[Rfam]
RNA sequence: GGGGAUGAUCGGUUUCGACAGCGGUUGUCGAAGCAGGGGAAGCGUGUCGAGGAAGCGGCAAUGAUCUCGUAAACCAUAUGUCGCAAAAAAUAAUCGCCAACACCAAGCGCGAUUCCUUCGCCCUCGCUGCCUAAGUAGCGACUUGCGAAGUGUCAGCCCGGGGCUGUUCCCGACCCGGAUCCUGGCAUCAGCUAGGGAACUAAACCUCUAGACCCGGUCACGGGGUGUAGAGGGAAAUCAAACAGUGACUGAGCCCGUCGGAGACUUGUCCGCGUGAUCUCCGGGGCCGAGAAAAUCGCAGCGGACUGCACACGGAGAAGCCCUGGUUCUGCACCGUUGGACGCGGGUUCGAUUCCCGCCAUCUCCACGA
Numbered sequence: 001g002g003g004g005a006u007g008a009u010c011g012g013u014u015u016c017g018a019c020a021g022c023g024g025u026u027g028u029c030g031a032a033g034c035a036g037g038g039g040a041a042g043c044g045u046g047u048c049g050a051g052g053a054a055g056c057g058g059c060a061a062u063g064a065u066c067u068c069g070u071a072a073a074c075c076a077u078a079u080g081u082c083g084c085a086a087a088a089a090a091u092a093a094u095c096g097c098c099a100a101c102a103c104c105a106a107g108c109g110c111g112a113u114u115c116c117u118u119c120g121c122c123c124u125c126g127c128u129g130c131c132u133a134a135g136u137a138g139c140g141a142c143u144u145g146c147g148a149a150g151u152g153u154c155a156g157c158c159c160g161g162g163g164c165u166g167u168u169c170c171c172g173a174c175c176c177g178g179a180u181c182c183u184g185g186c187a188u189c190a191g192c193u194a195g196g197g198a199a200c201u202a203a204a205c206c207u208c209u210a211g212a213c214c215c216g217g218u219c220a221c222g223g224g225g226u227g228u229a230g231a232g233g234g235a236a237a238u239c240a241a242a243c244a245g246u247g248a249c250u251g252a253g254c255c256c257g258u259c260g261g262a263g264a265c266u267u268g269u270c271c272g273c274g275u276g277a278u279c280u281c282c283g284g285g286g287c288c289g290a291g292a293a294a295a296u297c298g299c300a301g302c303g304g305a306c307u308g309c310a311c312a313c314g315g316a317g318a319a320g321c322c323c324u325g326g327u328u329c330u331g332c333a334c335c336g337u338u339g340g341a342c343g344c345g346g347g348u349u350c351g352a353u354u355c356c357c358g359c360c361a362u363c364u365c366c367a368c369g370a
Stems, first nucleotide, its partner, number of pairs: 001366007019339007030329003034325005043314005048069005055084006124141007151187006158178005164172001166200006205233006212226002216250006253287004259283003263279002268306004343359005
Rfam assigns this 370-nucleotide RNA sequence from Streptomyces sp. PBH53 to the family "transfer-messenger RNA". Rfam classes the family as a non-coding RNA gene. Gene Ontology term of the family: RNA catabolic process.